[Rfam]
RNA: Small nucleolar RNA ACA64
RNA sequence: AUUGGUUGAAAGUUACCUGUGACUUUGGUCACAGGUGAGAUUCCUUGCCCAGAGCCACCAGGGCCUCAGCUCACUGCUCGCUCCUCUUUGUGGGGAGGUAAAACCCAGGCUCUGACACAU
Numbered sequence: 001a002u003u004g005g006u007u008g009a010a011a012g013u014u015a016c017c018u019g020u021g022a023c024u025u026u027g028g029u030c031a032c033a034g035g036u037g038a039g040a041u042u043c044c045u046u047g048c049c050c051a052g053a054g055c056c057a058c059c060a061g062g063g064c065c066u067c068a069g070c071u072c073a074c075u076g077c078u079c080g081c082u083c084c085u086c087u088u089u090g091u092g093g094g095g096a097g098g099u100a101a102a103a104c105c106c107a108g109g110c111u112c113u114g115a116c117a118c119a120u
Base pairs, nucleotide, nucleotide: 005046008043009042010041013038014037015036016035021030022029023028060113062111063110064109065108066107071101073099074098075097079092080091081090